[Rfam]
RNA: FMN riboswitch aptamer (RFN element)
Organism: Parashewanella spongiae
RNA sequence: GCACAUUCUCAGGGCGGGGUGCAAUUCCCCACCGGCGGUAAUUGUGUUGACUUGAUUCAACACAAAAGCCCGCGAGCGCCUGAUAUCAACUUCCUUGAUGUUAGGGUCAGCAGAUUUGGUGACUUUUAUCCCCUUGAUAAAACAUUCCAAAGCCGAUGGUAAUGUUAUGACACGUUUCAUCGUCAUCCUAAGUCCGGAUGGAAGAGAAUAUGA
Numbered sequence: 001g002c003a004c005a006u007u008c009u010c011a012g013g014g015c016g017g018g019g020u021g022c023a024a025u026u027c028c029c030c031a032c033c034g035g036c037g038g039u040a041a042u043u044g045u046g047u048u049g050a051c052u053u054g055a056u057u058c059a060a061c062a063c064a065a066a067a068g069c070c071c072g073c074g075a076g077c078g079c080c081u082g083a084u085a086u087c088a089a090c091u092u093c094c095u096u097g098a099u100g101u102u103a104g105g106g107u108c109a110g111c112a113g114a115u116u117u118g119g120u121g122a123c124u125u126u127u128a129u130c131c132c133c134u135u136g137a138u139a140a141a142a143c144a145u146u147c148c149a150a151a152g153c154c155g156a157u158g159g160u161a162a163u164g165u166u167a168u169g170a171c172a173c174g175u176u177u178c179a180u181c182g183u184c185a186u187c188c189u190a191a192g193u194c195c196g197g198a199u200g201g202a203a204g205a206g207a208a209u210a211u212g213a
Stems, first nucleotide, its partner, number of pairs: 003211001005209006017029003033155002035073004068153002076111002115151005157196003